[Rfam]
RNA sequence: AGGAGCGGUUAUUUCUCCUUUAUCAAAAGUAACACUCGUUCAUGCUGUGGGUUUAUAAACCUUAGAUGCUGGUCAUCGAUAGUGUGAAGUGAGGGAGGGUUAAAUGCCCA
Numbered sequence: 001a002g003g004a005g006c007g008g009u010u011a012u013u014u015c016u017c018c019u020u021u022a023u024c025a026a027a028a029g030u031a032a033c034a035c036u037c038g039u040u041c042a043u044g045c046u047g048u049g050g051g052u053u054u055a056u057a058a059a060c061c062u063u064a065g066a067u068g069c070u071g072g073u074c075a076u077c078g079a080u081a082g083u084g085u086g087a088a089g090u091g092a093g094g095g096a097g098g099g100u101u102a103a104a105u106g107c108c109c110a
Stems, first nucleotide, its partner, number of pairs: 001019004008033006035093004039088008049062005065077004097109004
RNA: epsC RNA